[Rfam]
RNA sequence: AGCUUAUGGUGAUGGCUUGUAUAAGGAGGUAUCUGAGCAAGGUGGCUCUCCAAUGGCUGGUCCUUGCAUGAUUACAUCCAAAAUUGAGGCUGGACAUCUGAGCAAACU
Number, nucleotide and partner (000 for none) at each position: 001a108002g107003c000004u105005u104006a000007u102008g000009g000010u000011g000012a000013u000014g000015g000016c000017u000018u000019g000020u000021a000022u000023a000024a000025g000026g000027a000028g000029g000030u000031a000032u000033c000034u000035g000036a000037g067038c066039a065040a064041g063042g062043u000044g000045g000046c000047u000048c000049u000050c000051c000052a000053a000054u000055g000056g000057c000058u000059g000060g000061u000062c042063c041064u040065u039066g038067c037068a000069u000070g000071a000072u000073u000074a000075c000076a000077u000078c000079c000080a000081a000082a000083a000084u000085u000086g000087a000088g000089g000090c000091u000092g000093g000094a000095c000096a000097u000098c000099u000100g000101a000102g007103c000104a005105a004106a000107c002108u001